RNA sequence: CCUCCUUUUCUUGGCAGGGACCGGGCUUGUGGUCCCGCUCUCCGUAAUAUAUGGAGGAAGAGGGAAAGGACUCUGGCCCCCUUGGCAUCAUGUCUUCGGUGCCGGUGGCUUCUCAUCCCCUGGUUCUAUCCUCAAGUGCCGAGACACCA
Numbered sequence: 001c002c003u004c005c006u007u008u009u010c011u012u013g014g015c016a017g018g019g020a021c022c023g024g025g026c027u028u029g030u031g032g033u034c035c036c037g038c039u040c041u042c043c044g045u046a047a048u049a050u051a052u053g054g055a056g057g058a059a060g061a062g063g064g065a066a067a068g069g070a071c072u073c074u075g076g077c078c079c080c081c082u083u084g085g086c087a088u089c090a091u092g093u094c095u096u097c098g099g100u101g102c103c104g105g106u107g108g109c110u111u112c113u114c115a116u117c118c119c120c121u122g123g124u125u126c127u128a129u130c131c132u133c134a135a136g137u138g139c140c141g142a143g144a145c146a147c148c149a
Base pairs, nucleotide, nucleotide: 001057002056003055004054005053015044017042018041019040020039022037023036024035025034083141084140085139086138087137088136102123103122104121105120107118108117
RNA: Small nucleolar RNA SNORA57
Organism: Callithrix jacchus